[Rfam]
RNA sequence: AAAGGAGCAAUAAUUUCCUUCUUGUUCUAUUAAGAGGACGUUAUUGCUCCUUUAUUU
Numbered sequence: 001a002a003a004g005g006a007g008c009a010a011u012a013a014u015u016u017c018c019u020u021c022u023u024g025u026u027c028u029a030u031u032a033a034g035a036g037g038a039c040g041u042u043a044u045u046g047c048u049c050c051u052u053u054a055u056u057u
Stems, first nucleotide, its partner, number of pairs: 001053014019036006

Shown here is a 57-nucleotide sequence from Emmenopterys henryi, a member of the family "Plastid-psbA-3 3UTR RNA".
By type it is a cis-regulatory element.
About the family: Plastid psbA-3 is a non-coding RNA (ncRNA) present in plastids. It was identified in inverted repeat sequences in the 3 prime untranslate region (3UTR) of photosystem II quinone-binding protein (psbA).
Taxonomically the source falls in Emmenopterys (Eukaryota, Pentapetalae, Gentianales, Rubiaceae).